[Rfam]
RNA sequence: UAUGCAAGUGACGAUAAAUUAGACAGGGACAUCAGCACUUUUGUGUAAAGAAUGAUGAUUUGUCUUUGGGAAUCUCUCCGAUGCAUA
Numbered sequence: 001u002a003u004g005c006a007a008g009u010g011a012c013g014a015u016a017a018a019u020u021a022g023a024c025a026g027g028g029a030c031a032u033c034a035g036c037a038c039u040u041u042u043g044u045g046u047a048a049a050g051a052a053u054g055a056u057g058a059u060u061u062g063u064c065u066u067u068g069g070g071a072a073u074c075u076c077u078c079c080g081a082u083g084c085a086u087a
Stems, first nucleotide, its partner, number of pairs: 002086005
RNA: Small nucleolar RNA R44/J54/Z268 family
Organism: Glycine max